Nucleotides: 206
Stems, first nucleotide, its partner, number of pairs: 007109002015104004026091006039079003053074005112126006127139003155172007177203004188199004
Number, partner (000 for none) and nucleotide at each position: 001000c002000a003000a004000a005000u006000g007109g008108c009000a010000a011000u012000g013000a014000u015104g016103g017102a018101a019000a020000a021000g022000a023000g024000u025000a026091g027090u028089c029088u030087u031086a032000a033000a034000u035000u036000u037000u038000c039079u040078g041077a042000a043000a044000a045000a046000a047000g048000g049000g050000a051000g052000a053074c054073c055072u056071g057070u058000c059000a060000u061000a062000g063000a064000c065000u066000g067000a068000a069000a070057g071056c072055a073054g074053g075000g076000g077041u078040c079039a080000g081000a082000c083000a084000a085000u086031u087030a088029a089028g090027a091026u092000g093000a094000a095000g096000u097000u098000c099000a100000c101018u102017u103016c104015c105000g106000g107000a108008g109007c110000u111000u112126a113125c114124c115123a116122g117121u118000a119000u120000c121117a122116c123115u124114g125113g126112u127139c128138g129137g130000u131000a132000c133000a134000c135000a136000a137129c138128c139127g140000u141000u142000a143000u144000g145000u146000a147000a148000u149000u150000a151000a152000g153000u154000g155172c156171g157170u158169g159168a160167u161166u162000g163000u164000u165000u166161g167160a168159u169158c170157a171156c172155g173000a174000a175000u176000g177203a178202g179201g180200a181000u182000g183000g184000u185000a186000a187000c188199a189198c190197g191196a192000c193000a194000a195000c196191u197190c198189g199188u200180u201179c202178c203177u204000u205000u206000u
Overview
The family of this 206-nucleotide sequence from Enterococcus columbae is "T-box leader". Rfam describes the family as follows. Uncharged tRNA acts as the effector for transcription antitermination of genes in the T-box leader family. T-boxes are found upstream of many aminoacyl-tRNA synthetase genes and some amino acid biosynthetic genes usually in Gram-positive bacteria. The anticodon of a specific tRNA base pairs to a specifier sequence within the T-box motif, and the NCCA acceptor tail of the tRNA base pairs to a conserved bulge in the T-box antiterminator hairpin. The family's RNA type in Rfam is cis-regulatory leader. It scores 94 bits against the family's covariance model. The organism belongs to Enterococcus columbae, within Bacteria. On this family, see Gerdeman et al., J Mol Biol 2003: "Solution structure of the Bacillus subtilis T-box antiterminator RNA: seven nucleotide bulge characterized by stacking and flexibility".